Rfam assigns this 87-nucleotide RNA from Pseudomonas cavernae to the family "gyrA RNA". A search with the family's covariance model found it, with a score of 72 bits.
[Rfam]
RNA sequence: UCGUGAGUCGUUGCUGGCUAUUGGCUGGCAAUGGCGAGCUUCGCGCCACUCAGGAAGGGCGGUGUGAAGUUUCACUAGAAAAAGGAA
Numbered sequence: 001u002c003g004u005g006a007g008u009c010g011u012u013g014c015u016g017g018c019u020a021u022u023g024g025c026u027g028g029c030a031a032u033g034g035c036g037a038g039c040u041u042c043g044c045g046c047c048a049c050u051c052a053g054g055a056a057g058g059g060c061g062g063u064g065u066g067a068a069g070u071u072u073c074a075c076u077a078g079a080a081a082a083a084g085g086a087a
Stems, first nucleotide, its partner, number of pairs: 007035009017025002036072012049059003
Dot-bracket structure: ......(((((((((.((.....)).)))))))))((((((((((((.(((.....))).))))))))))))...............